RNA sequence: AGUCUUAAGUAGAAGCCUACCCGCUUCUCACCUGCGGCAAUUGCGCUUGCAGGUCUAUCGUGACGGUGAAGCGUAGAUGAAUUGCGAUAAGAGCGGGUGGAUUCUGCCCGCUCUUAUUUUUAUUA
Dot-bracket structure: ..........((((((......)))))).(((..((((......)).))..))).....................................(((((((((...))))))))).............